The record is a 95-nucleotide sequence from Streptococcus hyointestinalis, which matches "Glycine riboswitch aptamer" in Rfam. A search with the family's covariance model found it, with a score of 70 bits. Lineage of the source: Bacteria > Bacillota > Bacilli > Lactobacillales > Streptococcus.

RNA sequence: CGACGGACUUCUGGAGAGACUUGUCCAUUAGAGACAGGCGCCGAAGGGGCAAAGCAUAUGCUCAAUCUCUCAGGCAAAAGGACAGAAGAUAAGUA
Numbered sequence: 001c002g003a004c005g006g007a008c009u010u011c012u013g014g015a016g017a018g019a020c021u022u023g024u025c026c027a028u029u030a031g032a033g034a035c036a037g038g039c040g041c042c043g044a045a046g047g048g049g050c051a052a053a054g055c056a057u058a059u060g061c062u063c064a065a066u067c068u069c070u071c072a073g074g075c076a077a078a079a080g081g082a083c084a085g086a087a088g089a090u091a092a093g094u095a
Stems, first nucleotide, its partner, number of pairs: 006090001008088006020038004040075003043071002047069003053062002